[Rfam]
RNA sequence: UAUAAUAUCUUAUCCAAUCUAAGUUAUACAAUUGUAAUAGAGAAAGAAAACUCUAAGAUAAGAGACUAAAACUAAAUACUGAUAAUAUUUAG
Numbered sequence: 001u002a003u004a005a006u007a008u009c010u011u012a013u014c015c016a017a018u019c020u021a022a023g024u025u026a027u028a029c030a031a032u033u034g035u036a037a038u039a040g041a042g043a044a045a046g047a048a049a050a051c052u053c054u055a056a057g058a059u060a061a062g063a064g065a066c067u068a069a070a071a072c073u074a075a076a077u078a079c080u081g082a083u084a085a086u087a088u089u090u091a092g
Stems, first nucleotide, its partner, number of pairs: 009062006038055005072092007
The family of this 92-nucleotide RNA is "PGK RNA".
The sequence is in the family's curated seed alignment.